RNA: pan motif
Organism: Anaerobacillus isosaccharinicus
RNA sequence: UGGGUAGUAUCUUAUGAACUGCACCAACAUGAAUGCAUAAUAAAAGAUUUUAACUUAAAAUUGUCUGCCUUGAUCCGUAUGGACUAGGACAGAGGG
Numbered sequence: 001u002g003g004g005u006a007g008u009a010u011c012u013u014a015u016g017a018a019c020u021g022c023a024c025c026a027a028c029a030u031g032a033a034u035g036c037a038u039a040a041u042a043a044a045a046g047a048u049u050u051u052a053a054c055u056u057a058a059a060a061u062u063g064u065c066u067g068c069c070u071u072g073a074u075c076c077g078u079a080u081g082g083a084c085u086a087g088g089a090c091a092g093a094g095g096g
Stems, first nucleotide, its partner, number of pairs: 001026003004022005010017002065092003068088003072084001074083003